[Rfam]
RNA: Plastid-ycf2 5UTR RNA
Organism: Triticum aestivum
RNA sequence: GUGCAUCCAGCAGAAAUUGAACCCUCAAAUUUACCAAUUAUGAGUUGGACGCUUUAACCAUUCAACCAUGUAUGC
Number, nucleotide and partner (000 for none) at each position: 001g000002u000003g075004c074005a073006u072007c000008c070009a000010g026011c000012a000013g023014a000015a000016a000017u000018u000019g000020a000021a000022c000023c013024c000025u000026c010027a000028a000029a000030u000031u000032u000033a000034c000035c000036a000037a000038u000039u000040a069041u068042g067043a000044g066045u065046u064047g063048g062049a061050c000051g059052c000053u000054u000055u000056a000057a000058c000059c051060a000061u049062u048063c047064a046065a045066c044067c042068a041069u040070g008071u000072a006073u005074g004075c003